RNA sequence: AGGAGGACUAACAAAACUGAGUCUGGAGAGUGAGACUCUGGUGACAGUGGCCUCCAAAAAGAAAAAGGAUGGAGAGAGCAGUCCUACUUCCAGAAAAGCACAGGACUCACUGUGCCAUCUGACACUG
Numbered sequence: 001a002g003g004a005g006g007a008c009u010a011a012c013a014a015a016a017c018u019g020a021g022u023c024u025g026g027a028g029a030g031u032g033a034g035a036c037u038c039u040g041g042u043g044a045c046a047g048u049g050g051c052c053u054c055c056a057a058a059a060a061g062a063a064a065a066a067g068g069a070u071g072g073a074g075a076g077a078g079c080a081g082u083c084c085u086a087c088u089u090c091c092a093g094a095a096a097a098g099c100a101c102a103g104g105a106c107u108c109a110c111u112g113u114g115c116c117a118u119c120u121g122a123c124a125c126u127g
Stems, first nucleotide, its partner, number of pairs: 002055005015042001017040001019038006066120003077111002080107006089100001091098001

The record is a 127-nucleotide RNA sequence, which matches "Small Cajal body specific RNA 4" in Rfam. A search with the family's covariance model found it, with a score of 82 bits. On this family, see Darzacq et al., EMBO J 2002: "Cajal body-specific small nuclear RNAs: a novel class of 2'-O-methylation and pseudouridylation guide RNAs". Its family is annotated with RNA processing, nucleolus and Cajal body in the Gene Ontology. Its Rfam clan is "SCARNA4 clan". By type it is a small Cajal body RNA. scaRNAs are a specific class of small nuclear RNAs which localise to the Cajal bodies and guide the modification of RNA polymerase II transcribed spliceosomal RNAs U1, U2, U4, U5 and U12. ACA26 belongs to the H/ACA box class of guide RNAs as it has the predicted hairpin-hinge-hairpin-tail structure, conserved H/ACA-box motifs and is found associated with GAR1.